[Rfam]
RNA sequence: GACCGGAUGCCGCCGAGUCCCGUCCGCCACCGCGGCGGGAGCCGGGGACCCACCGAACCCGGGGUGAGUCCCGCCCGUCGAGCCUGAGCUCGAGGGGCGGGUAGGGCGUCUCCCCGCCCGAACCCGUCAGCUGACCCGGUAGGCGGCCACGGGAGAACGG
Numbered sequence: 001g002a003c004c005g006g007a008u009g010c011c012g013c014c015g016a017g018u019c020c021c022g023u024c025c026g027c028c029a030c031c032g033c034g035g036c037g038g039g040a041g042c043c044g045g046g047g048a049c050c051c052a053c054c055g056a057a058c059c060c061g062g063g064g065u066g067a068g069u070c071c072c073g074c075c076c077g078u079c080g081a082g083c084c085u086g087a088g089c090u091c092g093a094g095g096g097g098c099g100g101g102u103a104g105g106g107c108g109u110c111u112c113c114c115c116g117c118c119c120g121a122a123c124c125c126g127u128c129a130g131c132u133g134a135c136c137c138g139g140u141a142g143g144c145g146g147c148c149a150c151g152g153g154a155g156a157a158c159g160g
Stems, first nucleotide, its partner, number of pairs: 011145004018040007041140006051061001062125003070101007104119004